[Rfam]
RNA sequence: AAAUACACCCAUAAGUACAGUAGUGCCCAUCCUGGAGCUACUUUACCAUAUUCGGAAUUA
Numbered sequence: 001a002a003a004u005a006c007a008c009c010c011a012u013a014a015g016u017a018c019a020g021u022a023g024u025g026c027c028c029a030u031c032c033u034g035g036a037g038c039u040a041c042u043u044u045a046c047c048a049u050a051u052u053c054g055g056a057a058u059u060a
Base pairs, nucleotide, nucleotide: 017044019042020041021040022039023038024037026035027034

Shown here is a 60-nucleotide RNA from Closterium sp. NIES-68, a member of the family "Plastid-psbN 5UTR RNA". From the family's description: Plastid psbN is a non-coding RNA (ncRNA) recognised in plastids. It was reported as a conserved 11 stem-loop in the prime untranslated region (5UTR) of psbN genes. It has been reported that the motif is retained in a subset of mature transcripts in barley, which can suggests a possible role in transcript alternative 5 prime processing. It scores 51 bits against the family's covariance model. By type it is a cis-regulatory element. The family's consensus secondary structure was predicted with LocARNA.